[Rfam]
RNA sequence: AUCCAAGGUGAUUCCCUCUUCCAUGGGGCCAACUAUUGCCCCUCUCAGGAAAGUAGCAACUUGGAAUAAAAAUUGGGCAUGCCUAAGACCUUCUAGGGAGAAGGGGAUGUUUUUCCUUUUGCCUUCCUUUGGCUGCCUACAUAG
Numbered sequence: 001a002u003c004c005a006a007g008g009u010g011a012u013u014c015c016c017u018c019u020u021c022c023a024u025g026g027g028g029c030c031a032a033c034u035a036u037u038g039c040c041c042c043u044c045u046c047a048g049g050a051a052a053g054u055a056g057c058a059a060c061u062u063g064g065a066a067u068a069a070a071a072a073u074u075g076g077g078c079a080u081g082c083c084u085a086a087g088a089c090c091u092u093c094u095a096g097g098g099a100g101a102a103g104g105g106g107a108u109g110u111u112u113u114u115c116c117u118u119u120u121g122c123c124u125u126c127c128u129u130u131g132g133c134u135g136c137c138u139a140c141a142u143a144g
Base pairs, nucleotide, nucleotide: 002065003064004063005062006061007060009058010057020050021049022048025042026041027040028039029038075136077134080132087125095117097115098114099113